[Rfam]
RNA: Fluoride riboswitch aptamer (crcB RNA motif)
RNA sequence: AGUCUACCAGGAAAUGGUGUCUUCCUGCUUUGAAACCGUUUCGCAUCGCCGAAACUGAUGGCGCCUACAAAUAU
Numbered sequence: 001a002g003u004c005u006a007c008c009a010g011g012a013a014a015u016g017g018u019g020u021c022u023u024c025c026u027g028c029u030u031u032g033a034a035a036c037c038g039u040u041u042c043g044c045a046u047c048g049c050c051g052a053a054a055c056u057g058a059u060g061g062c063g064c065c066u067a068c069a070a071a072u073a074u
Base pairs, nucleotide, nucleotide: 010025011024012023013022016065017064018063019062020061021060038055039054040053041052042051043050